[Rfam]
RNA: DUF805 RNA
RNA sequence: GAUAUCUGUAGUCUAGUAAACAGAAUAAAAAACGGGGCGAUACCGAAAGGCCAUAAGAGUAGGGAACAAA
Numbered sequence: 001g002a003u004a005u006c007u008g009u010a011g012u013c014u015a016g017u018a019a020a021c022a023g024a025a026u027a028a029a030a031a032a033c034g035g036g037g038c039g040a041u042a043c044c045g046a047a048a049g050g051c052c053a054u055a056a057g058a059g060u061a062g063g064g065a066a067c068a069a070a
Stems, first nucleotide, its partner, number of pairs: 006023004036052003043064002